[Rfam]
RNA: mir-5984 microRNA precursor family
RNA sequence: GGCCAUCAUAAAACCGUCUAAAGAGUACGCUUCUAUGCAUAGAAGUGUACUCUUUAGACGGUUCUAUGAUGAUU
Numbered sequence: 001g002g003c004c005a006u007c008a009u010a011a012a013a014c015c016g017u018c019u020a021a022a023g024a025g026u027a028c029g030c031u032u033c034u035a036u037g038c039a040u041a042g043a044a045g046u047g048u049a050c051u052c053u054u055u056a057g058a059c060g061g062u063u064c065u066a067u068g069a070u071g072a073u074u
Base pairs, nucleotide, nucleotide: 004071005070006069007068008067009066010065012063013062014061015060016059017058018057019056020055021054022053023052024051025050026049027048028047030045031044032043033042034041035040